Shown here is a 175-nucleotide RNA from Photobacterium damselae, a member of the family "sok antitoxin (CssrC)". The organism belongs to Photobacterium damselae subsp. damselae, within Bacteria. A search with the family's covariance model found it, with a score of 89 bits. About the family: Also identified in Shigella as CssrC.
[Rfam]
Nucleotides: 175
Stems, first nucleotide, its partner, number of pairs: 001076003005073003011067001013065011026052004077100001081096006101141005108134002114128003145167001147165001
Number, partner (000 for none) and nucleotide at each position: 001076g002075g003074g004000u005073g006072c007071u008000c009000u010000u011067g012000g013065c014064u015063g016062u017061u018060u019059g020058u021057u022056g023055a024000g025000g026052g027051c028050a029049a030000u031000a032000a033000a034000u035000a036000c037000c038000c039000g040000u041000c042000a043000c044000u045000g046000g047000u048000u049029u050028u051027g052026u053000c054000c055023u056022u057021g058020g059019c060018a061017a062016a063015u064014a065013g066000a067011c068000g069000a070000a071007a072006g073005c074003c075002c076001c077100g078000a079000a080000a081096g082095u083094u084093a085092a086091a087000u088000u089000u090000c091086u092085u093084u094083a095082a096081c097000c098000a099000a100077c101141g102140a103139g104138g105137c106000a107000a108134u109133c110000u111000a112000a113000u114128g115127u116126a117000c118000u119000u120000g121000a122000a123000c124000a125000c126116u127115a128114c129000u130000g131000a132000u133109g134108g135000u136000a137105g138104c139103c140102u141101c142000u143000a144000u145167u146000u147165u148000a149000c150000u151000g152000a153000g154000a155000g156000g157000c158000a159000a160000g161000u162000u163000u164000u165147a166000u167145g168000c169000u170000a171000c172000g173000a174000a175000g